Rfam assigns this 56-nucleotide sequence from Actinocrinis puniceicyclus to the family "msiK RNA".
By type it is a cis-regulatory element.
The organism belongs to Actinocrinis, within Bacteria.
The family's consensus secondary structure is taken from published work.
A search with the family's covariance model found it, with a score of 51 bits.
RNA sequence: UGCGGCCGCCUUCCAACUCGGAUCGUCCGGCACGUUCCUGCCGGUUGAAGGGAUAG
Numbered sequence: 001u002g003c004g005g006c007c008g009c010c011u012u013c014c015a016a017c018u019c020g021g022a023u024c025g026u027c028c029g030g031c032a033c034g035u036u037c038c039u040g041c042c043g044g045u046u047g048a049a050g051g052g053a054u055a056g
Stems, first nucleotide, its partner, number of pairs: 010051003014047003027044006
Dot-bracket structure: .........(((.(((..........((((((......))))))))).))).....